[Rfam]
RNA sequence: CCAAAGGCUCUUUUCAGAGCCACCCACAACAUCAUAAGAGAGCUC
Numbered sequence: 001c002c003a004a005a006g007g008c009u010c011u012u013u014u015c016a017g018a019g020c021c022a023c024c025c026a027c028a029a030c031a032u033c034a035u036a037a038g039a040g041a042g043c044u045c
Base pairs, nucleotide, nucleotide: 006021007020008019009018010017011016
Shown here is a 45-nucleotide RNA from Trogon melanurus, a member of the family "Histone 3' UTR stem-loop". The organism belongs to Trogon, within Eukaryota. Rfam's curators write: The mRNAs of metazoan histone genes lack a poly-A tail. 3' end processing occurs at a site between a highly conserved stem-loop (modelled by this family) and a purine rich region around 20 nts downstream (the histone downstream element, or HDE). The family's RNA type in Rfam is cis-regulatory element. On this family, see Williams and Marzluff, Nucleic Acids Res 1995: "The sequence of the stem and flanking sequences at the 3' end of histone mRNA are critical determinants for the binding of the stem-loop binding protein". It scores 40 bits against the family's covariance model.